[Rfam]
RNA sequence: AUAAUACUUCAGGGCAGAGUGAAAUUCUCUACUGGCGGUAAACUCCGCGAACCAAUAAUGGCCGAACUGGUGAAAUUCCAGUAGCAACAGUUAAAGUCUGGAUGAAAGAAGUGUUUU
Numbered sequence: 001a002u003a004a005u006a007c008u009u010c011a012g013g014g015c016a017g018a019g020u021g022a023a024a025u026u027c028u029c030u031a032c033u034g035g036c037g038g039u040a041a042a043c044u045c046c047g048c049g050a051a052c053c054a055a056u057a058a059u060g061g062c063c064g065a066a067c068u069g070g071u072g073a074a075a076u077u078c079c080a081g082u083a084g085c086a087a088c089a090g091u092u093a094a095a096g097u098c099u100g101g102a103u104g105a106a107a108g109a110a111g112u113g114u115u116u117u
Stems, first nucleotide, its partner, number of pairs: 003115008017029003031097002033086002035048004043084002052061002066082005088100003

A member of the RNA family "FMN riboswitch aptamer (RFN element)" from Faecalibacillus faecis, 117 nucleotides long. Gene Ontology term of the family: FMN binding. On this family, see Wilt et al., J Struct Biol X 2020: "FMN riboswitch aptamer symmetry facilitates conformational switching through mutually exclusive coaxial stacking configurations".